[Rfam]
RNA sequence: GCGUGGGUCGGCCCGUUCGCGUUGAUCGGCGGGUCGGGGGAUGCCGCCGCCUCAAUCCCCGCGGGUGGCGGAACGGUCCGGGGGGCGGAUCCCGUCUCCCGGACCGCA
Numbered sequence: 001g002c003g004u005g006g007g008u009c010g011g012c013c014c015g016u017u018c019g020c021g022u023u024g025a026u027c028g029g030c031g032g033g034u035c036g037g038g039g040g041a042u043g044c045c046g047c048c049g050c051c052u053c054a055a056u057c058c059c060c061g062c063g064g065g066u067g068g069c070g071g072a073a074c075g076g077u078c079c080g081g082g083g084g085g086c087g088g089a090u091c092c093c094g095u096c097u098c099c100c101g102g103a104c105c106g107c108a
Stems, first nucleotide, its partner, number of pairs: 001107002006074001008072001009036008018028001037042001044071009075105013
Shown here is a 108-nucleotide sequence from Streptomyces sp. Mg1, a member of the family "Streptomyces RNA 4115". From the family's description: Identified by deep sequencing of transcriptome at the end of exponential growth phase. Sequencing size consistent with notrthern blot size. Streptomyces specific. It scores 80 bits against the family's covariance model. The pairing is the family consensus, mapped onto this sequence.